[Rfam]
RNA: bZIP non canonical Hac1/Xbp1 intron
RNA sequence: GAGACCUCCGAUUUGACACAACAUCCUGCAGAGAUGUUGUGUGGCCUGCAGUGUCAAUCGGAGGAUUC
Numbered sequence: 001g002a003g004a005c006c007u008c009c010g011a012u013u014u015g016a017c018a019c020a021a022c023a024u025c026c027u028g029c030a031g032a033g034a035u036g037u038u039g040u041g042u043g044g045c046c047u048g049c050a051g052u053g054u055c056a057a058u059c060g061g062a063g064g065a066u067u068c
Stems, first nucleotide, its partner, number of pairs: 001068003005064003009060005020038006043055003